[Rfam]
RNA sequence: UGAGAUGGAAUCAGCAUUUGGACAUGCGAUUUUAUGCUAAUUCCAUCUCAUU
Numbered sequence: 001u002g003a004g005a006u007g008g009a010a011u012c013a014g015c016a017u018u019u020g021g022a023c024a025u026g027c028g029a030u031u032u033u034a035u036g037c038u039a040a041u042u043c044c045a046u047c048u049c050a051u052u
Base pairs, nucleotide, nucleotide: 001050002049003048004047005046006045007044008043009042010041011040013038014037015036016035017034018029019028020027
RNA: MIR1886 microRNA precursor family
Organism: Solanum commersonii